[Rfam]
Shown here is a 454-nucleotide part of an RNA from Caldisphaera lagunensis, a member of the family "Archaeal large subunit ribosomal RNA". It scores 2826 bits against the family's covariance model. On this family, see Yusupov et al., Science 2001: "Crystal structure of the ribosome at 5.5 A resolution".
RNA sequence: CCUGCCGAAGUGUGUCGCAGCACAGCCCCGCUGGAGGCAAGCUGUGGGGUAGAGCUACGGAUUGGGUGAGCAGAGGGCGAAAGCCCUCGCAGCCCAGUCAAACUCCGAACCUGCAGCUACCGAAGAAGGCGGGAGUGGGGUUCCUCGGCAUAAGGCUGAGGGCCGAGAGGGGCUCAACCCGGACCAAGGUUAAGGCCCCUAAGUGCCGGCUAAGUGCUAAGGGAAAAGGCGUCCCUUGCCUAAGACAGCGGGGAGGUGGGCCCAACAGCAGCCAUCCUCUAAGGAGUGCGUAACAGCUCACCCGCCGAGGCAAGGGGCCCUGAAGAUUAGUCGGGGCUUAAGCCGGCCGCCGAGACCUUGGAUUACCCUCAUUAUGAGGGUAUAUAGUAGGCAGGCGUCGGGAUGGCGCAGAAGUAGGGCCGUGAGGUCCUAUGGAGCCGUUCCGAGUGCUGAU
Numbered sequence: 001c002c003u004g005c006c007g008a009a010g011u012g013u014g015u016c017g018c019a020g021c022a023c024a025g026c027c028c029c030g031c032u033g034g035a036g037g038c039a040a041g042c043u044g045u046g047g048g049g050u051a052g053a054g055c056u057a058c059g060g061a062u063u064g065g066g067u068g069a070g071c072a073g074a075g076g077g078c079g080a081a082a083g084c085c086c087u088c089g090c091a092g093c094c095c096a097g098u099c100a101a102a103c104u105c106c107g108a109a110c111c112u113g114c115a116g117c118u119a120c121c122g123a124a125g126a127a128g129g130c131g132g133g134a135g136u137g138g139g140g141u142u143c144c145u146c147g148g149c150a151u152a153a154g155g156c157u158g159a160g161g162g163c164c165g166a167g168a169g170g171g172g173c174u175c176a177a178c179c180c181g182g183a184c185c186a187a188g189g190u191u192a193a194g195g196c197c198c199c200u201a202a203g204u205g206c207c208g209g210c211u212a213a214g215u216g217c218u219a220a221g222g223g224a225a226a227a228g229g230c231g232u233c234c235c236u237u238g239c240c241u242a243a244g245a246c247a248g249c250g251g252g253g254a255g256g257u258g259g260g261c262c263c264a265a266c267a268g269c270a271g272c273c274a275u276c277c278u279c280u281a282a283g284g285a286g287u288g289c290g291u292a293a294c295a296g297c298u299c300a301c302c303c304g305c306c307g308a309g310g311c312a313a314g315g316g317g318c319c320c321u322g323a324a325g326a327u328u329a330g331u332c333g334g335g336g337c338u339u340a341a342g343c344c345g346g347c348c349g350c351c352g353a354g355a356c357c358u359u360g361g362a363u364u365a366c367c368c369u370c371a372u373u374a375u376g377a378g379g380g381u382a383u384a385u386a387g388u389a390g391g392c393a394g395g396c397g398u399c400g401g402g403a404u405g406g407c408g409c410a411g412a413a414g415u416a417g418g419g420c421c422g423u424g425a426g427g428u429c430c431u432a433u434g435g436a437g438c439c440g441u442u443c444c445g446a447g448u449g450c451u452g453a454u
Stems, first nucleotide, its partner, number of pairs: 001395006011024005026135001027133006036121002040118008052106001053104002060099008073088006139164002142162007169180003184361007194351003203348001205347006227321003231318010248305005254278003259273003279283001284299001288297002362385002364382005396449001398446010414433008